[Rfam]
RNA sequence: UAUAUCUUACUUUAAGAUUAGAUGAUGAGUAAGAGAACAAAAGUAAGUAUUUUAUCACACCUACCUGACUAGAAUUCAGGAUAAGUAAGUUCUUCAUAAGAGAACAUUUCCAUUACGAAUUCAGUCGCAAAUUGUAGAAUUAGCUACUCUACGAUUUAGUGAGCGUUAGUAACGUUGUAAUAUAAUAUAGUCUUUGGAAGGAUUAUAUUGUAUUAUUAAAUAACUCCUC
Numbered sequence: 001u002a003u004a005u006c007u008u009a010c011u012u013u014a015a016g017a018u019u020a021g022a023u024g025a026u027g028a029g030u031a032a033g034a035g036a037a038c039a040a041a042a043g044u045a046a047g048u049a050u051u052u053u054a055u056c057a058c059a060c061c062u063a064c065c066u067g068a069c070u071a072g073a074a075u076u077c078a079g080g081a082u083a084a085g086u087a088a089g090u091u092c093u094u095c096a097u098a099a100g101a102g103a104a105c106a107u108u109u110c111c112a113u114u115a116c117g118a119a120u121u122c123a124g125u126c127g128c129a130a131a132u133u134g135u136a137g138a139a140u141u142a143g144c145u146a147c148u149c150u151a152c153g154a155u156u157u158a159g160u161g162a163g164c165g166u167u168a169g170u171a172a173c174g175u176u177g178u179a180a181u182a183u184a185a186u187a188u189a190g191u192c193u194u195u196g197g198a199a200g201g202a203u204u205a206u207a208u209u210g211u212a213u214u215a216u217u218a219a220a221u222a223a224c225u226c227c228u229c
Stems, first nucleotide, its partner, number of pairs: 010027001012025002080122002085116004089105005107200006125162004129157003133153006163175004178215004183210009
Rfam assigns this 229-nucleotide sequence to the family "RAGATH-14 RNA". Rfam's curators put it in the seed alignment. The base pairs follow the family's consensus structure, which is taken from published work. On this family, see Weinberg et al., Nat Chem Biol 2015: "New classes of self-cleaving ribozymes revealed by comparative genomics analysis".